[Rfam]
RNA sequence: UCCCUCCGGAUCCCUUUCCCAUCUGAUCUGAAUACCGAUCUCAUGGUCGAAAAAGGAGGAAAAGCAACAUCCUGGCUGGCCUCAUCCUGUGCUGGUGCAGUGCUGCUGGGAGAGGGGCCAGUCAGAAGACAGC
Numbered sequence: 001u002c003c004c005u006c007c008g009g010a011u012c013c014c015u016u017u018c019c020c021a022u023c024u025g026a027u028c029u030g031a032a033u034a035c036c037g038a039u040c041u042c043a044u045g046g047u048c049g050a051a052a053a054a055g056g057a058g059g060a061a062a063a064g065c066a067a068c069a070u071c072c073u074g075g076c077u078g079g080c081c082u083c084a085u086c087c088u089g090u091g092c093u094g095g096u097g098c099a100g101u102g103c104u105g106c107u108g109g110g111a112g113a114g115g116g117g118c119c120a121g122u123c124a125g126a127a128g129a130c131a132g133c
Base pairs, nucleotide, nucleotide: 003059004058005057006056007055019046020045021044022043025040026039027038028037076121077120078119079118080117081116082115
RNA: Small nucleolar RNA SNORA61
Organism: Melopsittacus undulatus